[Rfam]
RNA sequence: AACCGUUUCUUGAUCGAGAUCUCCAGCCGCCCAUCCGGCAGUUCACCUGGCUCACUUCCCCGGAGCCAGGCGGGCCGCAGGGUAGGCGCGGAUGGGGAUCUGGAUCAAGAAGCCGCAGACC
Numbered sequence: 001a002a003c004c005g006u007u008u009c010u011u012g013a014u015c016g017a018g019a020u021c022u023c024c025a026g027c028c029g030c031c032c033a034u035c036c037g038g039c040a041g042u043u044c045a046c047c048u049g050g051c052u053c054a055c056u057u058c059c060c061c062g063g064a065g066c067c068a069g070g071c072g073g074g075c076c077g078c079a080g081g082g083u084a085g086g087c088g089c090g091g092a093u094g095g096g097g098a099u100c101u102g103g104a105u106c107a108a109g110a111a112g113c114c115g116c117a118g119a120c121c
Base pairs, nucleotide, nucleotide: 010108011107012106013105014104015103018100019099021097022096023095024094025093027091028090029089030088031085033083034082036077037076038075039074046070047069048068049067050066051065052064053063
RNA: mraW RNA
Organism: Arthrobacter sp. C9C5